Shown here is a 106-nucleotide RNA from Canis lupus, a member of the family "mir-8834 microRNA precursor family". The match comes from Rfam's covariance-model search (67 bits). Lineage of the source: Eukaryota > Opisthokonta > Sarcopterygii > Boreoeutheria > Canis lupus.
RNA sequence: AGGAGGUCCAACCCUAGUGGCAGCGGCCAGCUUUGGAAACCUGGAUUCAGCCCCCACAGUAACGCCAGAGGUCUCCGUCUGCAGGGCCUGGAGGCUCUGGGGUGAG
Numbered sequence: 001a002g003g004a005g006g007u008c009c010a011a012c013c014c015u016a017g018u019g020g021c022a023g024c025g026g027c028c029a030g031c032u033u034u035g036g037a038a039a040c041c042u043g044g045a046u047u048c049a050g051c052c053c054c055c056a057c058a059g060u061a062a063c064g065c066c067a068g069a070g071g072u073c074u075c076c077g078u079c080u081g082c083a084g085g086g087c088c089u090g091g092a093g094g095c096u097c098u099g100g101g102g103u104g105a106g
Base pairs, nucleotide, nucleotide: 002098003097004096005095007093009090010089012086013085014084019079020078021077023075025074026073029072031070032069033068034067035066036065041059042058043057